Shown here is a 137-nucleotide RNA sequence from Leptolyngbya sp. ES-bin-22, a member of the family "Guanidine-I riboswitch aptamer".
Rfam describes the family as follows. This family represents a conserved RNA structure found upstream of the ykkC and yxkD genes in Bacillus subtilis and related genes in other bacteria. The function of this family is unclear although it has been suggested that it may function to switch on efflux pumps and detoxification systems in response to harmful environmental molecules.
NCBI's taxonomy places the organism under Bacteria, Cyanobacteriota, Cyanophyceae, Leptolyngbyales, Leptolyngbya.
The family has 100 seed sequences and 1,509 matches in Rfam 15.1.
It scores 72 bits against the family's covariance model.
RNA sequence: UUUAAUCGCUUCUAGGGUUCCAGCUUAAACAAACGUUUGGGCGAUCGGUCCGAGAGAAGCAAGCCGCUCUAGAUUGAACUCCUUGGUUACGUCAAGGCAGUCUAUUGGCUACACGGCGGGACAAAAGCCCGGGAGGA
Numbered sequence: 001u002u003u004a005a006u007c008g009c010u011u012c013u014a015g016g017g018u019u020c021c022a023g024c025u026u027a028a029a030c031a032a033a034c035g036u037u038u039g040g041g042c043g044a045u046c047g048g049u050c051c052g053a054g055a056g057a058a059g060c061a062a063g064c065c066g067c068u069c070u071a072g073a074u075u076g077a078a079c080u081c082c083u084u085g086g087u088u089a090c091g092u093c094a095a096g097g098c099a100g101u102c103u104a105u106u107g108g109c110u111a112c113a114c115g116g117c118g119g120g121a122c123a124a125a126a127g128c129c130c131g132g133g134a135g136g137a
Base pairs, nucleotide, nucleotide: 008060009059010058011057012056015051016050020048021047022045023042024041025040026039027038028037062110063109064108065107066106112132114135118130119129120128